The record is a 74-nucleotide sequence from Channa argus, which matches "mir-196 microRNA precursor family" in Rfam.

RNA sequence: GGAGUGGUUUAGGUAGUCUCAUGUUGUUGGGCUAUGUUGCUUUUCCCACAACACGAAACUGCCUUGAUUACCUC
Numbered sequence: 001g002g003a004g005u006g007g008u009u010u011a012g013g014u015a016g017u018c019u020c021a022u023g024u025u026g027u028u029g030g031g032c033u034a035u036g037u038u039g040c041u042u043u044u045c046c047c048a049c050a051a052c053a054c055g056a057a058a059c060u061g062c063c064u065u066g067a068u069u070a071c072c073u074c
Stems, first nucleotide, its partner, number of pairs: 004071006011064007019056001022053006029047003

Its family is annotated with gene silencing by miRNA and RISC complex in the Gene Ontology. The base pairs follow the family's consensus structure, which was predicted with PFOLD. The organism belongs to Channa, within Eukaryota.